Source information: ryfA RNA: a 286-nucleotide sequence from Shigella genomosp. SF-2015.
RNA sequence: CUGGUUCGCGGCCUGUCCAGCAGGUUGACUUGUGUUGCCGGAGCAACGCAGGCACCCCACAGUGCUUGCUAUCGCGGCAAUAUCGCCAGUGGUGCUGUCGUGAUGCGGUCUUCGCAUGGACCGCACAAUGAAGAUACGGUGCUUUUGUAUCGUACUUAUUGUUUCUGGUGCGCUGUUAACCGAGGUAAAUAAUAACCGGAGUCUCUCCGGCAACAAUUUACUGGUGGUUAACAACCUUCAGAACAGCAGGUAAGCCCGAAUGCCGCCCUUUGGGGCGGCAUAUUUU
Numbered sequence: 001c002u003g004g005u006u007c008g009c010g011g012c013c014u015g016u017c018c019a020g021c022a023g024g025u026u027g028a029c030u031u032g033u034g035u036u037g038c039c040g041g042a043g044c045a046a047c048g049c050a051g052g053c054a055c056c057c058c059a060c061a062g063u064g065c066u067u068g069c070u071a072u073c074g075c076g077g078c079a080a081u082a083u084c085g086c087c088a089g090u091g092g093u094g095c096u097g098u099c100g101u102g103a104u105g106c107g108g109u110c111u112u113c114g115c116a117u118g119g120a121c122c123g124c125a126c127a128a129u130g131a132a133g134a135u136a137c138g139g140u141g142c143u144u145u146u147g148u149a150u151c152g153u154a155c156u157u158a159u160u161g162u163u164u165c166u167g168g169u170g171c172g173c174u175g176u177u178a179a180c181c182g183a184g185g186u187a188a189a190u191a192a193u194a195a196c197c198g199g200a201g202u203c204u205c206u207c208c209g210g211c212a213a214c215a216a217u218u219u220a221c222u223g224g225u226g227g228u229u230a231a232c233a234a235c236c237u238u239c240a241g242a243a244c245a246g247c248a249g250g251u252a253a254g255c256c257c258g259a260a261u262g263c264c265g266c267c268c269u270u271u272g273g274g275g276c277g278g279c280a281u282a283u284u285u286u
Base pairs, nucleotide, nucleotide: 007034009023011021012020024029037169038168039167049068050067051066052065053064054063055062071104072103073102074101075100076099077098078097079096081094082093083092084091085090105124106123107122108121109120110119111118125162126161127160128159129158130157131156135154136153137152138151139150140149141148142147170251171250173246174245175244176243177242198208199207200206201205223236224235225234258284259283260281261280262279263278264277265276266275267274268273
For this family Rfam cites "Identification of novel small RNAs using comparative genomics and microarrays" (Wassarman et al., Genes Dev, 2001).
The base pairs follow the family's consensus structure, which was predicted with RNAalifold.
From the family's description: This family consists of a number of bacterial RNA genes of 305 bases in length. The ryfA RNA gene is present in E. coli, Shigella flexneri and Salmonella species where it is found between the ydaN and dbpA genes.
It is annotated as a small RNA.